[Rfam]
RNA: Mammalian CPEB3 ribozyme
Organism: Alligator mississippiensis
RNA sequence: ACGGGUUGAGGCCAUAGCAGAGGCGCUCAUGGCACAGCCCUGUCAGAUUUCAGCAAAUCUGUGAAUUUUGCU
Numbered sequence: 001a002c003g004g005g006u007u008g009a010g011g012c013c014a015u016a017g018c019a020g021a022g023g024c025g026c027u028c029a030u031g032g033c034a035c036a037g038c039c040c041u042g043u044c045a046g047a048u049u050u051c052a053g054c055a056a057a058u059c060u061g062u063g064a065a066u067u068u069u070g071c072u
Base pairs, nucleotide, nucleotide: 008040010039011038012037016072017071018070019069020068021067022066023035025033044061045060046059047058048057049056050055